About this RNA: Shown here is a 114-nucleotide RNA from Paenalkalicoccus suaedae, a member of the family "epsC RNA". The match comes from Rfam's covariance-model search (90 bits). The family's RNA type in Rfam is cis-regulatory element.

Nucleotides: 114
Stems, first nucleotide, its partner, number of pairs: 001020004007035007036097004040092008050064004055059001067081004100114005
Number, partner (000 for none) and nucleotide at each position: 001020a002019g003018g004017u005000g006000a007035u008034u009033u010032c011031u012030c013029u014000a015000g016000c017004a018003c019002c020001u021000u022000u023000a024000u025000c026000a027000a028000u029013g030012g031011a032010g033009g034008a035007a036097c037096u038095c039094g040092g041091c042090u043089u044088u045087g046086c047085u048000g049000u050064g051063g052062g053061u054000g055059u056000a057000a058000a059055a060000g061053a062052c063051c064050u065000u066000a067081g068080g069079c070078g071000c072000g073000a074000a075000u076000g077000u078070u079069g080068c081067c082000a083000a084000u085047g086046g087045u088044g089043a090042g091041g092040u093000g094039u095038g096037a097036g098000g099000a100114c101113a102112g103111g104110u105000u106000a107000g108000a109000u110104g111103c112102c113101u114100g